Vault RNA: a 93-nucleotide RNA from Ovis aries. From the family's description: This family of RNAs are found as part of the enigmatic vault ribonucleoprotein complex. A search with the family's covariance model found it, with a score of 38 bits.
RNA sequence: UGGCCAGAUUUAGCACAAGUGGUUAGUGCGACCCAUCAGACUUCAGAUGCCUGUAUUGAGGUCUGAGACCUGUGGGUGCUUUCUGACCCUUUU
Numbered sequence: 001u002g003g004c005c006a007g008a009u010u011u012a013g014c015a016c017a018a019g020u021g022g023u024u025a026g027u028g029c030g031a032c033c034c035a036u037c038a039g040a041c042u043u044c045a046g047a048u049g050c051c052u053g054u055a056u057u058g059a060g061g062u063c064u065g066a067g068a069c070c071u072g073u074g075g076g077u078g079c080u081u082u083c084u085g086a087c088c089c090u091u092u093u
Base pairs, nucleotide, nucleotide: 002088003087005085006084007083013077014076016074019073020072021071022070027067029065030064